[Rfam]
RNA sequence: AAUUAUUGAAGUAGAGAUUGUGCUGCUACACACCCUCGCGGUCAAAAGAAAUGUGGGAAAGGGCACACCCACCAAUAAUU
Numbered sequence: 001a002a003u004u005a006u007u008g009a010a011g012u013a014g015a016g017a018u019u020g021u022g023c024u025g026c027u028a029c030a031c032a033c034c035c036u037c038g039c040g041g042u043c044a045a046a047a048g049a050a051a052u053g054u055g056g057g058a059a060a061g062g063g064c065a066c067a068c069c070c071a072c073c074a075a076u077a078a079u080u
Base pairs, nucleotide, nucleotide: 001080002079003078004077005076006075007074008073011029012028013027014026020066021065022064023063024062031048032042033041034040053072054071055070056069057068
The record is an 80-nucleotide RNA, which matches "skipping-rope RNA" in Rfam. It is annotated as a small RNA.